Shown here is an 89-nucleotide RNA sequence, a member of the family "Small nucleolar RNA snoR8a". For this family Rfam cites "Multiple snoRNA gene clusters from Arabidopsis" (Brown et al., RNA, 2001). It is one of the family's seed sequences. The family's RNA type in Rfam is C/D-box small nucleolar RNA.
RNA sequence: AAGAGUGCUAUGAUUGUAAAAGUAAUUCCUCGUACUGAAAGCCAAUGGCUUGAAAGACUCACAUUACUACCCAUAGAAUAUGAGCACUC
Numbered sequence: 001a002a003g004a005g006u007g008c009u010a011u012g013a014u015u016g017u018a019a020a021a022g023u024a025a026u027u028c029c030u031c032g033u034a035c036u037g038a039a040a041g042c043c044a045a046u047g048g049c050u051u052g053a054a055a056g057a058c059u060c061a062c063a064u065u066a067c068u069a070c071c072c073a074u075a076g077a078a079u080a081u082g083a084g085c086a087c088u089c
Stems, first nucleotide, its partner, number of pairs: 003089002006086002